[Rfam]
RNA sequence: ACCAAUGAUGAAAUUGCCCAACGUUUGGAGGCUGCAAUCGGCUUCAGGUUCCUGCCUGUCAGGAAGAACCUAGCUGGAGCCGCUGCACUCGAAUGACAACACCGGGCUUAUCAGAGGC
Dot-bracket structure: .((..............................................(((((.....)))))...................................................)).
Overview
The family of this 118-nucleotide sequence from Digitaria exilis is "Small nucleolar RNA Z278". NCBI's taxonomy places the organism under Eukaryota, Streptophyta, Tracheophyta, Paniceae, Digitaria. It is annotated as a C/D-box small nucleolar RNA. The base pairs follow the family's consensus structure, which was predicted with PFOLD. On this family, see Chen et al., Nucleic Acids Res 2003: "The high diversity of snoRNAs in plants: identification and comparative study of 120 snoRNA genes from Oryza sativa". The family has 7 seed sequences and 1,130 matches in Rfam 15.1. Gene Ontology terms of the family: nucleolus and RNA processing. About the family: snoZ278 is a C/D box small nucleolar RNA. Its methylation guide targets have not been reported.